[Rfam]
Background:
Small nucleolar RNA SNORA25: a 118-nucleotide sequence from Heterocephalus glaber. By type it is an H/ACA-box small nucleolar RNA. Rfam 15.1 lists 1,129 matches to the family in 449 species. The base pairs follow the family's consensus structure, which was predicted with RNAfold. About the family: ACA25 is a member of the H/ACA class of snoRNA that guide the sites of modification of uridines to pseudouridines.

RNA sequence: UGAUUUCUUUAAAGAGGGCUUGUGGGGCUGUGAAACCAAGAGCUCUUAGCACUGUGACCAAAGGCUGAAGUUCUCCACAGGAGGCCAUACAGUGAUAUGUUCCUGAGGAGAUAUGAAA
Numbered sequence: 001u002g003a004u005u006u007c008u009u010u011a012a013a014g015a016g017g018g019c020u021u022g023u024g025g026g027g028c029u030g031u032g033a034a035a036c037c038a039a040g041a042g043c044u045c046u047u048a049g050c051a052c053u054g055u056g057a058c059c060a061a062a063g064g065c066u067g068a069a070g071u072u073c074u075c076c077a078c079a080g081g082a083g084g085c086c087a088u089a090c091a092g093u094g095a096u097a098u099g100u101u102c103c104u105g106a107g108g109a110g111a112u113a114u115g116a117a118a
Base pairs, nucleotide, nucleotide: 002059004057005056007054014047015046016045017044018043019042020041021040023039026037027036072111073110074109075108076107079104080103081102082101087096088095